[Rfam]
RNA: Selenocysteine transfer RNA
Organism: Caldinitratiruptor microaerophilus
RNA sequence: GGCCGCGAUGGAACCGGUGUUCCCCCGGGGCUGCAAACCCUGGCGUCCGGACCACAGCGUCCGGAGAUGGGUUCGACUCCCAUCCGCGGCC
Numbered sequence: 001g002g003c004c005g006c007g008a009u010g011g012a013a014c015c016g017g018u019g020u021u022c023c024c025c026c027g028g029g030g031c032u033g034c035a036a037a038c039c040c041u042g043g044c045g046u047c048c049g050g051a052c053c054a055c056a057g058c059g060u061c062c063g064g065a066g067a068u069g070g071g072u073u074c075g076a077c078u079c080c081c082a083u084c085c086g087c088g089g090c091c
Base pairs, nucleotide, nucleotide: 001091002090003089004088005087006086007085008083010023011022012021013020014019025045026042027041028040029039030038047064048063049062050061051060068082069081070080071079